[Rfam]
RNA: U2 spliceosomal RNA
Organism: Hemibagrus wyckioides
RNA sequence: AAAUAUUGAAAAGAAAAAAAAAUCUGUUCUUAUCAGUUUAAUAUCUGAUACGUCCCCUACCCGGGGACCAUAUAUUAAAUUGAUUUUUGGAGCAGGGAGAUGGAAUAGGGGCUGUCUCCGUCCACUCCACGCAUCGACCCGGUAUAGCAGUAUCUCCGGGAACGGUGCACCCCUC
Dot-bracket structure: (.....).......................((((((........)))))).((((((.....))))))...........................((((..((....((((....)))).))..))))..((((((.(((((.............)))))..)))))).......